[Rfam]
RNA: Bacterial large subunit ribosomal RNA, nucleotides 3192 to 3438
Organism: Sagittula stellata
RNA sequence: GGAUACUUGAGAGGAGUUGCCCCUAGUACGAGAGGACCGGGGUGAACGAUCCACUGGUGGACCAGUUGUCGUGCCAACGGCAGUGCUGGGUAGCUAUGAUCGGAAAGGAUAACCGCUGAAGGCAUCUAAGCGGGAAGCCCCCCUCAAAACAAGGUAUCCCUGAGGACCGUGGAAGACCACCACGUCGAUAGGCCGGAGAUGUAAGUGCAGCAAUGCAUUCAGUUGACCGGUACUAAUGGUCCGAUAG
Numbered sequence: 001g002g003a004u005a006c007u008u009g010a011g012a013g014g015a016g017u018u019g020c021c022c023c024u025a026g027u028a029c030g031a032g033a034g035g036a037c038c039g040g041g042g043u044g045a046a047c048g049a050u051c052c053a054c055u056g057g058u059g060g061a062c063c064a065g066u067u068g069u070c071g072u073g074c075c076a077a078c079g080g081c082a083g084u085g086c087u088g089g090g091u092a093g094c095u096a097u098g099a100u101c102g103g104a105a106a107g108g109a110u111a112a113c114c115g116c117u118g119a120a121g122g123c124a125u126c127u128a129a130g131c132g133g134g135a136a137g138c139c140c141c142c143c144u145c146a147a148a149a150c151a152a153g154g155u156a157u158c159c160c161u162g163a164g165g166a167c168c169g170u171g172g173a174a175g176a177c178c179a180c181c182a183c184g185u186c187g188a189u190a191g192g193c194c195g196g197a198g199a200u201g202u203a204a205g206u207g208c209a210g211c212a213a214u215g216c217a218u219u220c221a222g223u224u225g226a227c228c229g230g231u232a233c234u235a236a237u238g239g240u241c242c243g244a245u246a247g
Base pairs, nucleotide, nucleotide: 001159002158003157004156005155006154007153008152011145012144013143014142017045018044019043020042021041022040023039047102048101049100050099051098055096056095057094062089063088064087065086066085067082068081069080070079071078072077107139108138113133114132115131116130117129164242165241166240167239168184169183170182171181172180189235190234191233192231193230194229195228196227198224199223205218206217207216208215209214